The record is a 137-nucleotide RNA sequence from Nannospalax galili, which matches "Small Cajal body specific RNA 21" in Rfam. From the family's description: scaRNAs are a specific class of small nuclear RNAs which localise to the Cajal bodies and guide the modification of RNA polymerase II transcribed spliceosomal RNAs U1, U2, U4, U5 and U12. ACA68 (SCARNA21) is a member of the H/ACA class of snoRNAs that guide the sites of modification of uridines to pseudouridines. This snoRNA was identified by computational screening and its expression in mouse experimentally verified by Northern blot and primer extension analysis. ACA68 is proposed to guide the pseudouridylation of residue U19 in U12 snRNA. It is annotated as a small Cajal body RNA.
[Rfam]
RNA sequence: AGGCUUGGUUUCCUGGGAAGUGGGCUCAGCCUCCUCCACUUCCCCUCAGCAGAGCCUACAAUAGAGGGGCCAGGCCUCCUCCAUGGGAGAGGUGUUUGUGGAAGGAGCCUUGCCUAGUCUGGCCUGGCCUCACACUU
Dot-bracket structure: .(((((........((((((((((..........)))))))))).......))))).........(((((.(((....((....(((....................))).....)).....))).)))))......
Taxonomically the source falls in Nannospalax (Eukaryota, Dipnotetrapodomorpha, Glires, Spalacinae). For this family Rfam cites "Cajal body-specific small nuclear RNAs: a novel class of 2'-O-methylation and pseudouridylation guide RNAs" (Darzacq et al., EMBO J, 2002). Rfam links the family to the GO terms nucleolus, RNA processing and Cajal body. The base pairs follow the family's consensus structure, which was predicted with RNAalifold.